sok antitoxin (CssrC): a 153-nucleotide sequence. A search with the family's covariance model found it, with a score of 86 bits.
Nucleotides: 153
Stems, first nucleotide, its partner, number of pairs: 001058003005055002008053001011050010022040003059077002062073004078119005085112003089108001091107004123148001125146001127144002
Number, partner (000 for none) and nucleotide at each position: 001058g002057g003056g004000u005055g006054c007000c008053u009000g010000a011050u012049g013048c014047u015046u016045u017044c018043u019042g020041a021000g022040c023039u024038c025000a026000g027000g028000c029000a030000g031000g032000u033000g034000u035000a036000g037000u038024g039023a040022g041020u042019c043018a044017g045016a046015a047014a048013g049012c050011a051000a052000a053008a054006g055005c056003c057002c058001c059077g060076g061000a062073g063072a064071u065070g066000u067000u068000u069000c070065c071064a072063u073062c074000a075000a076060c077059c078119g079118g080117g081116g082115c083000u084000a085112c086111c087110a088000c089108u090000c091107c092106a093105a094104a095000c096000c097000c098000a099000g100000a101000c102000a103000a104094u105093u106092u107091g108089g109000a110087u111086g112085g113000u114000a115082g116081c117080c118079u119078c120000u121000u122000c123148u124000u125146a126000g127144c128143a129000a130000g131000g132000a133000g134000g135000c136000a137000a138000u139000g140000a141000c142000a143128u144127g145000c146125u147000u148123a149000a150000c151000a152000a153000g
It is annotated as an antitoxin RNA. Rfam 15.1 lists 305 matches to the family in 167 species. Its family is annotated with mRNA binding in the Gene Ontology. Rfam describes the family as follows. Also identified in Shigella as CssrC.